[Rfam]
Nucleotides: 083
Base pairs, nucleotide, nucleotide: 001075002074003073004072005071006070007069008068009067012043013042014041016038025034026033027032045060046059047058048057
Number, partner (000 for none) and nucleotide at each position: 001075g002074c003073c004072g005071g006070g007069a008068g009067g010000g011000c012043g013042g014041c015000g016038a017000a018000u019000a020000c021000a022000a023000c024000a025034c026033c027032c028000g029000c030000a031000a032027g033026g034025g035000g036000a037000a038016u039000a040000a041014g042013c043012c044000c045060g046059c047058c048057g049000g050000c051000u052000g053000u054000g055000u056000g057048c058047g059046g060045u061000u062000u063000c064000u065000a066000g067009c068008c069007u070006c071005c072004c073003g074002g075001c076000a077000u078000c079000c080000c081000g082000c083000u